[Rfam]
RNA sequence: UGCAUCCGCUAGGGGUGUUGCCGCGACUCCGGACCGCAAGGCCGACAGCACGGUGACUGAGAAAGUCCCUUUGAACCUGAUUGAGGUAAUCCUCGCGCAGGGAAGCCGCUCCAGUUGUCC
Numbered sequence: 001u002g003c004a005u006c007c008g009c010u011a012g013g014g015g016u017g018u019u020g021c022c023g024c025g026a027c028u029c030c031g032g033a034c035c036g037c038a039a040g041g042c043c044g045a046c047a048g049c050a051c052g053g054u055g056a057c058u059g060a061g062a063a064a065g066u067c068c069c070u071u072u073g074a075a076c077c078u079g080a081u082u083g084a085g086g087u088a089a090u091c092c093u094c095g096c097g098c099a100g101g102g103a104a105g106c107c108g109c110u111c112c113a114g115u116u117g118u119c120c
Stems, first nucleotide, its partner, number of pairs: 006108001008106003011070004016064001017057007076101004082095004
This 120-nucleotide sequence from Hylemonella gracilis belongs to the Rfam family "TPP riboswitch aptamer (THI element)".
Taxonomically the source falls in Hylemonella gracilis (Bacteria, Pseudomonadati, Burkholderiales, Hylemonella).
Vitamin B(1) in its active form thiamin pyrophosphate (TPP) is an essential coenzyme that is synthesised by coupling of pyrimidine and thiazole moieties in bacteria.